Source information: The record is a 64-nucleotide sequence, which matches "RAGATH-18 RNA" in Rfam. About the family: Actinobacteria, Firmicutes, Fusobacteria, Thermotogae (1 example). The family's consensus secondary structure is taken from published work.
RNA sequence: CCCUAGGAGUGUUAUAACAAACGAAAGUAGCUAUAUAGCAAAAUCGGACACGUUGAACAGGGAA
Number, nucleotide and partner (000 for none) at each position: 001c062002c061003c060004u059005a000006g000007g000008a000009g051010u050011g049012u048013u047014a000015u000016a000017a000018c000019a000020a000021a000022c046023g045024a044025a000026a000027g000028u000029a000030g039031c038032u037033a000034u000035a000036u000037a032038g031039c030040a000041a000042a000043a000044u024045c023046g022047g013048a012049c011050a010051c009052g000053u000054u000055g000056a000057a000058c000059a004060g003061g002062g001063a000064a000